[Rfam]
RNA sequence: AUCAGAGUAGGAAAUAAAGCGUUAAGUGUCGAAUGGAUGGGAUGUUGCUAUUCGAACGAAGGUAUUAACUCAACGAUAUUAUUUAUGUGAGAAGGGUGCUCACGGAAAUAGUUAAUAUUGUGUAGAGUUUAUCGCGGUUUUAUUUUCGCAUUCGCUGCA
Numbered sequence: 001a002u003c004a005g006a007g008u009a010g011g012a013a014a015u016a017a018a019g020c021g022u023u024a025a026g027u028g029u030c031g032a033a034u035g036g037a038u039g040g041g042a043u044g045u046u047g048c049u050a051u052u053c054g055a056a057c058g059a060a061g062g063u064a065u066u067a068a069c070u071c072a073a074c075g076a077u078a079u080u081a082u083u084u085a086u087g088u089g090a091g092a093a094g095g096g097u098g099c100u101c102a103c104g105g106a107a108a109u110a111g112u113u114a115a116u117a118u119u120g121u122g123u124a125g126a127g128u129u130u131a132u133c134g135c136g137g138u139u140u141u142a143u144u145u146u147c148g149c150a151u152u153c154g155c156u157g158c159a
Stems, first nucleotide, its partner, number of pairs: 003157003010147010020136003026057002029055008040153005061133004
Dot-bracket structure: ..(((....(((((((((((((...((.((((((((...[[[[[...))))))))))...((((.................................................................))))))).)))))))))).]]]]].)))..
RNA: THF (Tetrahydrofolate) riboswitch aptamer